The record is a 100-nucleotide sequence from Clostridium sp. chh4-2, which matches "TPP riboswitch aptamer (THI element)" in Rfam. The base pairs follow the family's consensus structure, which is taken from published work. Lineage of the source: Bacteria > Clostridia > Eubacteriales > Clostridiaceae > Clostridium.
RNA sequence: GAAAAAUGCUAGGGGAGCCUUUGGGCUGAGAUUGGUAGUUACCUGACCCUCUCUACUUGAACCGGAUAAUGCCGGCGUAAGGAAGCAGAUGUAUACACUU
Dot-bracket structure: ......((((((((.((((....))).......(((....))))..)))).....((((..((((......))))..))))..)))).............